[Rfam]
RNA sequence: UCGUCAGUGAGGUACAUCCUUACCUGUUACUCCUGAAAAGGAGUUGCAGAAAAUGAUGAAUGGAGCUCAAUGAGAUAUGAUUAGUAUCUCCAUCUUGAUGGGAACAGCAACACCCAUUAAGACCCAUUCUGAU
Numbered sequence: 001u002c003g004u005c006a007g008u009g010a011g012g013u014a015c016a017u018c019c020u021u022a023c024c025u026g027u028u029a030c031u032c033c034u035g036a037a038a039a040g041g042a043g044u045u046g047c048a049g050a051a052a053a054u055g056a057u058g059a060a061u062g063g064a065g066c067u068c069a070a071u072g073a074g075a076u077a078u079g080a081u082u083a084g085u086a087u088c089u090c091c092a093u094c095u096u097g098a099u100g101g102g103a104a105c106a107g108c109a110a111c112a113c114c115c116a117u118u119a120a121g122a123c124c125c126a127u128u129c130u131g132a133u
Stems, first nucleotide, its partner, number of pairs: 024049003028046001029044005072090002075087003078083001095121002098118001101115002